[Rfam]
RNA sequence: GGUCAUGAGUGACAGCGACUACGGCCCCGGCCCGCUGUCCGGCAACCCUCCGUCCGUGGCGGGGUGCCCCGGGUGAAGACCAGGCCGUGGUCAGUCCGUCCGCGGCAAGCGCGGACC
Numbered sequence: 001g002g003u004c005a006u007g008a009g010u011g012a013c014a015g016c017g018a019c020u021a022c023g024g025c026c027c028c029g030g031c032c033c034g035c036u037g038u039c040c041g042g043c044a045a046c047c048c049u050c051c052g053u054c055c056g057u058g059g060c061g062g063g064g065u066g067c068c069c070c071g072g073g074u075g076a077a078g079a080c081c082a083g084g085c086c087g088u089g090g091u092c093a094g095u096c097c098g099u100c101c102g103c104g105g106c107a108a109g110c111g112c113g114g115a116c117c
Stems, first nucleotide, its partner, number of pairs: 001081004009040001011039006023032002041068003046064003050059002084106007092098001
A member of the RNA family "SAM (S-adenosyl methionine) riboswitch aptamer" from Streptomyces sp. SID7982, 117 nucleotides long. It scores 105 bits against the family's covariance model. Gene Ontology terms of the family: S-adenosylmethionine metabolic process and regulation of gene expression. About the family: SAM-IV is a mRNA element that regulates gene expression via direct sensing of S-adenosylmethionine (SAM or AdoMet).